[Rfam]
RNA sequence: AGCGUAUUUUGCGAUGGCGGAGCUCGACCGCCGGUCGAAGUGAUGGUGGCUUUCAUCGACGCGCACAGGGAUGCGCACGGGGCUUGGCCAUCGCGGCGCUAUCGGUCCGAGCCCGAUGGACAAGGCCGAUCUGCAGCGCGCUGCCGAUUGCCCCG
Dot-bracket structure: ...............(((((.......))))).............................................(((((......(((((((((((......................................))))))).)).)))))))
ALIL pseudoknot: a 155-nucleotide sequence from Paracoccus aestuarii. Rfam links the family to the GO term positive regulation of translational frameshifting. Taxonomically the source falls in Paracoccus (Bacteria, Pseudomonadati, Rhodobacterales, Paracoccaceae). For this family Rfam cites "Apical loop-internal loop RNA pseudoknots: a new type of stimulator of -1 translational frameshifting in bacteria" (Mazauric et al., J Biol Chem, 2008). The match comes from Rfam's covariance-model search (72 bits). Rfam classes the family as a cis-regulatory element.